[Rfam]
RNA: Small nucleolar RNA SNORD103/SNORD85
Organism: Silurus meridionalis
RNA sequence: CCUGACUGUGAUGACUCACUUGCCCUAUCUGAGAGAAACUGUUAUGAAACAAUCUUAAAUCCUCAUUUUAUUCUGAGUCAGU
Numbered sequence: 001c002c003u004g005a006c007u008g009u010g011a012u013g014a015c016u017c018a019c020u021u022g023c024c025c026u027a028u029c030u031g032a033g034a035g036a037a038a039c040u041g042u043u044a045u046g047a048a049a050c051a052a053u054c055u056u057a058a059a060u061c062c063u064c065a066u067u068u069u070a071u072u073c074u075g076a077g078u079c080a081g082u
Base pairs, nucleotide, nucleotide: 002081003080004079005078006077